[Rfam]
The record is a 155-nucleotide RNA from Gordonia sihwensis, which matches "Actinobacteria sRNA Ms_IGR-5" in Rfam. It is annotated as a small RNA. The organism belongs to Gordonia sihwensis, within Bacteria. On this family, see Li et al., RNA 2013: "Identification of small RNAs in Mycobacterium smegmatis using heterologous Hfq".
Nucleotides: 155
Stems, first nucleotide, its partner, number of pairs: 014059006060092001062090003066086001068085001070083005111149012124136005
Number, partner (000 for none) and nucleotide at each position: 001000c002000a003000a004000c005000a006000g007000g008000g009000a010000a011000g012000g013000a014059g015058g016057u017056g018055g019054u020000c021000c022000g023000a024000g025000a026000a027000a028000u029000g030000g031000u032000g033000a034000a035000u036000u037000u038000c039000a040000g041000g042000a043000c044000u045000g046000a047000g048000g049000a050000g051000g052000u053000g054019g055018c056017c057016g058015c059014c060092g061000c062090c063089u064088g065000a066086c067000c068085g069000a070083c071082u072081g073080a074079c075000u076000g077000a078000c079074g080073u081072c082071a083070g084000a085068c086066g087000g088064c089063g090062g091000u092060u093000g094000c095000c096000c097000a098000c099000c100000u101000g102000a103000a104000a105000u106000g107000a108000c109000g110000g111149c112148a113147g114146g115145c116144c117143c118142c119141g120140a121139g122138c123000a124136c125135g126134u127133g128132a129000a130000g131000u132128u133127c134126a135125c136124g137000c138122g139121c140120u141119c142118g143117g144116g145115g146114c147113c148112u149111g150000c151000c152000c153000g154000c155000a